The record is a 163-nucleotide RNA sequence from Salarchaeum sp. JOR-1, which matches "Sense overlapping transcript RNA 0042 (sot)" in Rfam. The match comes from Rfam's covariance-model search (118 bits). Rfam's curators write: It is associated with IS1341-type transposase (tnpB) genes, at the 3'-end in H. salinarum NRC-1.
[Rfam]
RNA sequence: CGGUAACUCCGAGUCCCUCACAGGAUAGGAGUAACGGCUGCUUGGCUCAGCCAUCGGUACGCCUGUUCGACAAAUCCACGGGGCAAGUCGCCCCACAAGAACAGGUCGUUCCGUGAACCUUAAUAUCCCAACGCUUGGGAAUCCCACCCGUUCACGGGUGGGA
Numbered sequence: 001c002g003g004u005a006a007c008u009c010c011g012a013g014u015c016c017c018u019c020a021c022a023g024g025a026u027a028g029g030a031g032u033a034a035c036g037g038c039u040g041c042u043u044g045g046c047u048c049a050g051c052c053a054u055c056g057g058u059a060c061g062c063c064u065g066u067u068c069g070a071c072a073a074a075u076c077c078a079c080g081g082g083g084c085a086a087g088u089c090g091c092c093c094c095a096c097a098a099g100a101a102c103a104g105g106u107c108g109u110u111c112c113g114u115g116a117a118c119c120u121u122a123a124u125a126u127c128c129c130a131a132c133g134c135u136u137g138g139g140a141a142u143c144c145c146a147c148c149c150g151u152u153c154a155c156g157g158g159u160g161g162g163a
Stems, first nucleotide, its partner, number of pairs: 003035002007031004013026003036052005055113003059109002062105007080094005126140004131135001142163009

It is annotated as a small RNA. NCBI's taxonomy places the organism under Archaea, Methanobacteriati, Methanobacteriota, Halobacteriaceae, Salarchaeum. Pairs were carried over by alignment from the consensus structure, which was predicted with RNAfold.